A member of the RNA family "Bacterial RNase P class A" from Thermoanaerobaculum aquaticum, 475 nucleotides long.
A search with the family's covariance model found it, with a score of 252 bits.
Lineage of the source: Bacteria > Acidobacteriota > Thermoanaerobaculia > Thermoanaerobaculales > Thermoanaerobaculum.
Its family is annotated with tRNA processing, dimeric ribonuclease P complex and ribonuclease P activity in the Gene Ontology.
The family's RNA type in Rfam is ribozyme.
RNA sequence: GGGGCAGGGCAGCGGCACAAAGCCGAAAUUGCAACCGGCUACGCUUUAGGCCAAGCAUGGUCAAGUUGGUGCUGGGAGGAAAGUCCGAACUCCAGGUGGGAGCACGCUGGGUAACGCCCAGCCGCGGUAACGCGAGGGAAAGUGCCACAGAAAACAUACCGCCCCGCACCACUUCCCCAAAAGGGGCCACCACGCCAGGGAAGGCCUCCUGGGCCAAAACCUGCGAGGCCGCCGUCCCUUGGGGAAGUGGUGCGGGGUAAGGGUGAAAAGGUGGGGUAAGAGCCCACCGCUCGGCCGGUGACGGCCGGGGCAUGGCAAACCCCGUGCGGAGCAAGGCCAAAUAGGGGGACCAACGGGCCCCACCCCCGGUGGCGCCAAAAGCGCCGGGUCCCCGGGUAGGCCGCUUGAGCUGGCAGGUAACUGCCAGCCCAGAGGAAUGGGUGCCCUCGACAGAAUUCGGCUUACAGCCCUCCCC
Numbered sequence: 001g002g003g004g005c006a007g008g009g010c011a012g013c014g015g016c017a018c019a020a021a022g023c024c025g026a027a028a029u030u031g032c033a034a035c036c037g038g039c040u041a042c043g044c045u046u047u048a049g050g051c052c053a054a055g056c057a058u059g060g061u062c063a064a065g066u067u068g069g070u071g072c073u074g075g076g077a078g079g080a081a082a083g084u085c086c087g088a089a090c091u092c093c094a095g096g097u098g099g100g101a102g103c104a105c106g107c108u109g110g111g112u113a114a115c116g117c118c119c120a121g122c123c124g125c126g127g128u129a130a131c132g133c134g135a136g137g138g139a140a141a142g143u144g145c146c147a148c149a150g151a152a153a154a155c156a157u158a159c160c161g162c163c164c165c166g167c168a169c170c171a172c173u174u175c176c177c178c179a180a181a182a183g184g185g186g187c188c189a190c191c192a193c194g195c196c197a198g199g200g201a202a203g204g205c206c207u208c209c210u211g212g213g214c215c216a217a218a219a220c221c222u223g224c225g226a227g228g229c230c231g232c233c234g235u236c237c238c239u240u241g242g243g244g245a246a247g248u249g250g251u252g253c254g255g256g257g258u259a260a261g262g263g264u265g266a267a268a269a270g271g272u273g274g275g276g277u278a279a280g281a282g283c284c285c286a287c288c289g290c291u292c293g294g295c296c297g298g299u300g301a302c303g304g305c306c307g308g309g310g311c312a313u314g315g316c317a318a319a320c321c322c323c324g325u326g327c328g329g330a331g332c333a334a335g336g337c338c339a340a341a342u343a344g345g346g347g348g349a350c351c352a353a354c355g356g357g358c359c360c361c362a363c364c365c366c367c368g369g370u371g372g373c374g375c376c377a378a379a380a381g382c383g384c385c386g387g388g389u390c391c392c393c394g395g396g397u398a399g400g401c402c403g404c405u406u407g408a409g410c411u412g413g414c415a416g417g418u419a420a421c422u423g424c425c426a427g428c429c430c431a432g433a434g435g436a437a438u439g440g441g442u443g444c445c446c447u448c449g450a451c452a453g454a455a456u457u458c459g460g461c462u463u464a465c466a467g468c469c470c471u472c473c474c475c
Base pairs, nucleotide, nucleotide: 001472002471003470004469007465008445009444010443011442013440016076018074019073022070023069024068025067026066081463082462083461085460086459087458088457089456090331091330092329093328097380102327103326104325105324106323107121108120109119110118111117122136123134124133125132126131137322138321142320143319144316145315146314159262160261161258162257163256164255165254166253167252168251169250170249171248172247173246174245175244176243177242178241179240180239270288271287272286273285274284275283289311290309291308292307293306294305295304296303297302335402336401337400338399345393346392347391348390349389350388371385372384373383374382375381409428410427411426412425413424414423415422416421